The family of this 80-nucleotide sequence is "skipping-rope RNA". It is one of the family's seed sequences. The family's RNA type in Rfam is small RNA.
RNA sequence: AGUAGUAGAGGACGGAACGGGCGGCCGUCGCCCCUUGCAAAAGGUUAGGAGAUGUGGGAACUGUCACCCCACCUAUUACU
Numbered sequence: 001a002g003u004a005g006u007a008g009a010g011g012a013c014g015g016a017a018c019g020g021g022c023g024g025c026c027g028u029c030g031c032c033c034c035u036u037g038c039a040a041a042a043g044g045u046u047a048g049g050a051g052a053u054g055u056g057g058g059a060a061c062u063g064u065c066a067c068c069c070c071a072c073c074u075a076u077u078a079c080u
Stems, first nucleotide, its partner, number of pairs: 001080008011029005020065004031049001033044004054072005